Shown here is a 111-nucleotide RNA from Variibacter gotjawalensis, a member of the family "EcpR1". Pairs were carried over by alignment from the consensus structure, which was predicted with WAR. From the family's description: Perviously named SmelC291, SmrC10, or Sra33. According to its overproduction phenotype it was renamed Elongated Cell Phenotype RNA1. It is annotated as a small RNA.
RNA sequence: UAGCCCUACGGAGUGCUCAGGUCCGCCGCAUCUCCUGGGUCCGUGGGGUUCGGCCGGUUCGAGUUCGGUGCGAGUGGCCUCCUCAUGACAUCGCGCUCGGCCGGCCACCUU
Numbered sequence: 001u002a003g004c005c006c007u008a009c010g011g012a013g014u015g016c017u018c019a020g021g022u023c024c025g026c027c028g029c030a031u032c033u034c035c036u037g038g039g040u041c042c043g044u045g046g047g048g049u050u051c052g053g054c055c056g057g058u059u060c061g062a063g064u065u066c067g068g069u070g071c072g073a074g075u076g077g078c079c080u081c082c083u084c085a086u087g088a089c090a091u092c093g094c095g096c097u098c099g100g101c102c103g104g105c106c107a108c109c110u111u
Stems, first nucleotide, its partner, number of pairs: 003049008016039006052106008061098002

A reference for the family is Robledo et al. (2015), "A stress-induced small RNA modulates alpha-rhizobial cell cycle progression", PLoS Genet.